[Rfam]
RNA sequence: AACCUGCUUAGUGAUAAGCAGCUGAACUAAGAGAAGUCAGCAGAAGCCAUAGUAUCAACGAUUUGUUGAGAAGGGC
Numbered sequence: 001a002a003c004c005u006g007c008u009u010a011g012u013g014a015u016a017a018g019c020a021g022c023u024g025a026a027c028u029a030a031g032a033g034a035a036g037u038c039a040g041c042a043g044a045a046g047c048c049a050u051a052g053u054a055u056c057a058a059c060g061a062u063u064u065g066u067u068g069a070g071a072a073g074g075g076c
Stems, first nucleotide, its partner, number of pairs: 001023001004021007037044002046076003055069006
RNA: Group II catalytic intron D1-D4-1